[Rfam]
RNA: MicA sRNA
RNA sequence: GAAAGACGCGCAUUUAUUAUCAUCCCUAUUUAGAUAUGUUCAUUUGGCCGCAUUUAUUGCGGCCUUUU
Numbered sequence: 001g002a003a004a005g006a007c008g009c010g011c012a013u014u015u016a017u018u019a020u021c022a023u024c025c026c027u028a029u030u031u032a033g034a035u036a037u038g039u040u041c042a043u044u045u046g047g048c049c050g051c052a053u054u055u056a057u058u059g060c061g062g063c064c065u066u067u068u
Base pairs, nucleotide, nucleotide: 021038022037023036026033027032046064047063048062049061050060051059052058
Dot-bracket structure: ....................(((..((....))..))).......(((((((.....)))))))....